A member of the RNA family "Small nucleolar RNA snoR99" from Helianthus annuus, 123 nucleotides long. Taxonomically the source falls in Helianthus (Eukaryota, Tracheophyta, asterids, campanulids). By type it is an H/ACA-box small nucleolar RNA. On this family, see Marker et al., Curr Biol 2002: "Experimental RNomics: identification of 140 candidates for small non-messenger RNAs in the plant Arabidopsis thaliana".

[Rfam]
RNA sequence: UUGCUUUAGGGAUGGAAUGAAUGAUAUCCCCUGAGAUUUAAUUCACCCUAUCACUUUGUCACCAAAUUCCUUAGAAUUUUUUACUAAUUUACAAUUUGCUGAUCAUUAAGGGGUGGAAUAUAU
Numbered sequence: 001u002u003g004c005u006u007u008a009g010g011g012a013u014g015g016a017a018u019g020a021a022u023g024a025u026a027u028c029c030c031c032u033g034a035g036a037u038u039u040a041a042u043u044c045a046c047c048c049u050a051u052c053a054c055u056u057u058g059u060c061a062c063c064a065a066a067u068u069c070c071u072u073a074g075a076a077u078u079u080u081u082u083a084c085u086a087a088u089u090u091a092c093a094a095u096u097u098g099c100u101g102a103u104c105a106u107u108a109a110g111g112g113g114u115g116g117a118a119u120a121u122a123u
Base pairs, nucleotide, nucleotide: 042117043116044115045114046113047112058103059102060101061100063098064097065096066095067094068093
Annotation: A search with the family's covariance model found it, with a score of 47 bits.